[Rfam]
Notes
The family of this 70-nucleotide RNA from Affinirhizobium straminoryzae is "ybhL leader". The source organism's lineage runs through Bacteria, Pseudomonadati, Pseudomonadota, Hyphomicrobiales and Affinirhizobium. Rfam's curators write: This family is a putative regulatory RNA structure that is found upstream of an uncharacterized membrane protein in alpha-proteobacteria. The pairing is the family consensus, mapped onto this sequence. Its family is annotated with regulation of gene expression in the Gene Ontology. A search with the family's covariance model found it, with a score of 60 bits.

RNA sequence: CAUGCUUGCUGAGGCUCCGCAGCGGCGCCAGGGUUUCAAGGCCCGACACCGUAGCAACACCGGAGCUUUG
Numbered sequence: 001c002a003u004g005c006u007u008g009c010u011g012a013g014g015c016u017c018c019g020c021a022g023c024g025g026c027g028c029c030a031g032g033g034u035u036u037c038a039a040g041g042c043c044c045g046a047c048a049c050c051g052u053a054g055c056a057a058c059a060c061c062g063g064a065g066c067u068u069u070g
Stems, first nucleotide, its partner, number of pairs: 012068008023051003031044003034040001